[Rfam]
RNA sequence: UUUGGAAAAUGAUGCGAGAUAAGUCAGAUGUUGUUUCUGAGAAGCAGUAGCCCUUUGCACUGCCUUUGCUGAAUAAUUUGCACGUCAGUCUGAUUCCAAA
Numbered sequence: 001u002u003u004g005g006a007a008a009a010u011g012a013u014g015c016g017a018g019a020u021a022a023g024u025c026a027g028a029u030g031u032u033g034u035u036u037c038u039g040a041g042a043a044g045c046a047g048u049a050g051c052c053c054u055u056u057g058c059a060c061u062g063c064c065u066u067u068g069c070u071g072a073a074u075a076a077u078u079u080g081c082a083c084g085u086c087a088g089u090c091u092g093a094u095u096c097c098a099a100a
Base pairs, nucleotide, nucleotide: 001100002099003098004097005096006095007094

The family of this 100-nucleotide sequence from Phoenix dactylifera is "Small nucleolar RNA Z122". For this family Rfam cites "The high diversity of snoRNAs in plants: identification and comparative study of 120 snoRNA genes from Oryza sativa" (Chen et al., Nucleic Acids Res, 2003). Rfam 15.1 lists 822 matches to the family in 247 species. A search with the family's covariance model found it, with a score of 50 bits. Gene Ontology terms of the family: RNA processing and nucleolus. The base pairs follow the family's consensus structure, which was predicted with PFOLD.